This 60-nucleotide RNA from Sphingobium ummariense belongs to the Rfam family "terC RNA". Rfam classes the family as a cis-regulatory element.

RNA sequence: GAUGCGGGCCGGGCCCCUCUGGCGGUGGAUGCAAAUCCGCCGCGAUGUCGGACCGCAUCG
Numbered sequence: 001g002a003u004g005c006g007g008g009c010c011g012g013g014c015c016c017c018u019c020u021g022g023c024g025g026u027g028g029a030u031g032c033a034a035a036u037c038c039g040c041c042g043c044g045a046u047g048u049c050g051g052a053c054c055g056c057a058u059c060g
Stems, first nucleotide, its partner, number of pairs: 006054002009051004022043008